[Rfam]
RNA sequence: AGAGAUAAAGCUAAACCCGUCGUGAGGCGGGGACAGAAAGUUUCGGGUCUCAAAGGAAGGCGGCCGGGCUGCCUUAA
Numbered sequence: 001a002g003a004g005a006u007a008a009a010g011c012u013a014a015a016c017c018c019g020u021c022g023u024g025a026g027g028c029g030g031g032g033a034c035a036g037a038a039a040g041u042u043u044c045g046g047g048u049c050u051c052a053a054a055g056g057a058a059g060g061c062g063g064c065c066g067g068g069c070u071g072c073c074u075u076a077a
Stems, first nucleotide, its partner, number of pairs: 003074002011036002016031006034063001039070004044066003047061003
RNA: c-di-GMP-I-GGC riboswitch aptamer
Organism: delta proteobacterium NaphS2